A member of the RNA family "Nitrogen stress-induced RNA 1" from Oculatella sp. LEGE 06141, 51 nucleotides long. It scores 56 bits against the family's covariance model. Taxonomically the source falls in Oculatella (Bacteria, Bacillati, Cyanobacteriota, Oculatellales). On this family, see Ionescu et al., J Mol Biol 2010: "Heterocyst-specific transcription of NsiR1, a non-coding RNA encoded in a tandem array of direct repeats in cyanobacteria". Rfam classes the family as a small RNA. Pairs were carried over by alignment from the consensus structure.
Nucleotides: 051
Stems, first nucleotide, its partner, number of pairs: 002013003023043008
Number, partner (000 for none) and nucleotide at each position: 001000u002013g003012g004011u005000a006000g007000a008000u009000g010000c011004a012003c013002c014000c015000u016000g017000a018000u019000u020000c021000a022000u023043u024042c025041c026040c027039c028038a029037g030036c031000c032000u033000c034000g035000u036030g037029c038028u039027g040026g041025g042024g043023a044000u045000u046000u047000u048000u049000u050000a051000u